[Rfam]
RNA sequence: GCUACAUUUAGUGCCUGCCUUGUCUUUUCAAAGUUUGUUCCUUUUGUUUGUAAGGACAUUACUGUUUUACUUGGUGGCAGAAAUCU
Numbered sequence: 001g002c003u004a005c006a007u008u009u010a011g012u013g014c015c016u017g018c019c020u021u022g023u024c025u026u027u028u029c030a031a032a033g034u035u036u037g038u039u040c041c042u043u044u045u046g047u048u049u050g051u052a053a054g055g056a057c058a059u060u061a062c063u064g065u066u067u068u069a070c071u072u073g074g075u076g077g078c079a080g081a082a083a084u085c086u
Base pairs, nucleotide, nucleotide: 012079013078014077015076017075018074019073022070023069032063033062034061039056040055041054042053043052